[Rfam]
Shown here is a 275-nucleotide RNA from Sciurus vulgaris, a member of the family "Mason-Pfizer monkey virus packaging signal". Rfam 15.1 lists 2,921 matches to the family in 53 species. It is annotated as a cis-regulatory element. From the family's description: This family represents a group of sequences that are related to the Mason-Pfizer monkey virus (MPMV) packaging signal. The packaging signal is located in the 5' UTR and is required for specific RNA encapsidation. A search with the family's covariance model found it, with a score of 177 bits. Gene Ontology term of the family: viral genome packaging. The literature on the family includes a 1995 paper in J Virol by Harrison et al., "Secondary structure model of the Mason-Pfizer monkey virus 5' leader sequence: identification of a structural motif common to a variety of retroviruses".
RNA sequence: UGGCGCCCAAAGUGGGGCAAGGAUACGGGGAAUUCGAGAGGGAAGAGGCGUCUAAUGGUUUGGCCGAUAAAAGCAAAAGUCAGUUGGACAAAGAUUGCCGCGGGAGCCUGCCGCGCCGCUCUUAAAGGUACAGUAGUGCCUAACUGUGGGACAAGAAUUAAGUAAGCAUAAAGUUUUUGUUAAGCAAUUAAAAGAAGCUUUAAAGACACGAGGAGUAAAGGUUAAGAGUAAUGAUCUUUUUAAGUUUUCUGACCUUAUUAAGGACACCUGUCUGU
Numbered sequence: 001u002g003g004c005g006c007c008c009a010a011a012g013u014g015g016g017g018c019a020a021g022g023a024u025a026c027g028g029g030g031a032a033u034u035c036g037a038g039a040g041g042g043a044a045g046a047g048g049c050g051u052c053u054a055a056u057g058g059u060u061u062g063g064c065c066g067a068u069a070a071a072a073g074c075a076a077a078a079g080u081c082a083g084u085u086g087g088a089c090a091a092a093g094a095u096u097g098c099c100g101c102g103g104g105a106g107c108c109u110g111c112c113g114c115g116c117c118g119c120u121c122u123u124a125a126a127g128g129u130a131c132a133g134u135a136g137u138g139c140c141u142a143a144c145u146g147u148g149g150g151a152c153a154a155g156a157a158u159u160a161a162g163u164a165a166g167c168a169u170a171a172a173g174u175u176u177u178u179g180u181u182a183a184g185c186a187a188u189u190a191a192a193a194g195a196a197g198c199u200u201u202a203a204a205g206a207c208a209c210g211a212g213g214a215g216u217a218a219a220g221g222u223u224a225a226g227a228g229u230a231a232u233g234a235u236c237u238u239u240u241u242a243a244g245u246u247u248u249c250u251g252a253c254c255u256u257a258u259u260a261a262g263g264a265c266a267c268c269u270g271u272c273u274g275u
Stems, first nucleotide, its partner, number of pairs: 006030003012026003034046002084128002088123001093119001096118001099115005134154001136152002139150004159202003162198002209251002212248005219237006260275001262273004